[Rfam]
RNA sequence: GGAUGAAGAUGAUGAGAAAAAAUUGAAUAGUGAUGGUGAAUUCCACCUGAUCGACGAAUAAUUUAUUUUUUCGCUACGUUCUUACUGAUUCAUCC
Numbered sequence: 001g002g003a004u005g006a007a008g009a010u011g012a013u014g015a016g017a018a019a020a021a022a023u024u025g026a027a028u029a030g031u032g033a034u035g036g037u038g039a040a041u042u043c044c045a046c047c048u049g050a051u052c053g054a055c056g057a058a059u060a061a062u063u064u065a066u067u068u069u070u071u072c073g074c075u076a077c078g079u080u081c082u083u084a085c086u087g088a089u090u091c092a093u094c095c
Stems, first nucleotide, its partner, number of pairs: 004092004